[Rfam]
This 149-nucleotide RNA from Wolbachia endosymbiont of Drosophila simulans belongs to the Rfam family "Group II catalytic intron D1-D4-7". Rfam's curators put it in the seed alignment. Lineage of the source: Bacteria > Alphaproteobacteria > Rickettsiales > Wolbachieae > Wolbachia.

RNA sequence: CCAGAUGUUUUGCCAUCUGAGUCUACGCAUCAGUGCGAAUCGGGCAACCAGUUGGUGCCGAGCGACGCGGACAAUGAACCUCCUCUUGAUAAAGAAGAUGCUCAAUCGUGAGAGAAAGCAUAAACUACAAGCAUCAUGUGGUUGGAGGG
Numbered sequence: 001c002c003a004g005a006u007g008u009u010u011u012g013c014c015a016u017c018u019g020a021g022u023c024u025a026c027g028c029a030u031c032a033g034u035g036c037g038a039a040u041c042g043g044g045c046a047a048c049c050a051g052u053u054g055g056u057g058c059c060g061a062g063c064g065a066c067g068c069g070g071a072c073a074a075u076g077a078a079c080c081u082c083c084u085c086u087u088g089a090u091a092a093a094g095a096a097g098a099u100g101c102u103c104a105a106u107c108g109u110g111a112g113a114g115a116a117a118g119c120a121u122a123a124a125c126u127a128c129a130a131g132c133a134u135c136a137u138g139u140g141g142u143u144g145g146a147g148g149g
Stems, first nucleotide, its partner, number of pairs: 002019006027068002030065002033058004038053003042049002081098002084095003099120004106113002124142006
Rfam's curators write: Group II introns are found in rRNA, tRNA and mRNA of organelles in fungi, plants and protists, and also in mRNA in bacteria.